A member of the RNA family "mir-8489 microRNA precursor family" from Plutella xylostella, 88 nucleotides long.
The organism belongs to Plutella, within Eukaryota.
The base pairs follow the family's consensus structure, which was predicted with RNAalifold.
Its family is annotated with miRNA-mediated post-transcriptional gene silencing and RISC complex in the Gene Ontology.
RNA sequence: GUAGCCUAAUGUAGUGUGCCGUUACCUCUGAAUUUGGAUGAAUUUAUGGACAUACAAGCUCAGAGGUAACGGCCACUAAAUUGGCCAU
Number, nucleotide and partner (000 for none) at each position: 001g000002u087003a000004g085005c084006c083007u000008a082009a081010u080011g000012u078013a077014g076015u075016g074017u000018g073019c072020c071021g070022u069023u068024a067025c066026c065027u064028c063029u062030g061031a060032a000033u000034u057035u056036g055037g000038a053039u052040g051041a000042a000043u000044u000045u000046a000047u000048g000049g000050a000051c040052a039053u038054a000055c036056a035057a034058g000059c000060u031061c030062a029063g028064a027065g026066g025067u024068a023069a022070c021071g020072g019073c018074c016075a015076c014077u013078a012079a000080a010081u009082u008083g006084g005085c004086c000087a002088u000